The record is a 63-nucleotide RNA sequence from Danio rerio, which matches "Small nucleolar RNA SNORD58" in Rfam. The family is grouped with related families in Rfam's "SNORD58 clan".
RNA sequence: CUGUAAUGAUGACCACCACUUAGGACACCUCUGAAUUAAUGAAGAGACGAGUUUCUGAGCAGC
Numbered sequence: 001c002u003g004u005a006a007u008g009a010u011g012a013c014c015a016c017c018a019c020u021u022a023g024g025a026c027a028c029c030u031c032u033g034a035a036u037u038a039a040u041g042a043a044g045a046g047a048c049g050a051g052u053u054u055c056u057g058a059g060c061a062g063c
Stems, first nucleotide, its partner, number of pairs: 001062004

NCBI's taxonomy places the organism under Eukaryota, Eumetazoa, Cypriniphysae, Cyprinoidei, Danio. The family has 33 seed sequences and 2,484 matches in Rfam 15.1.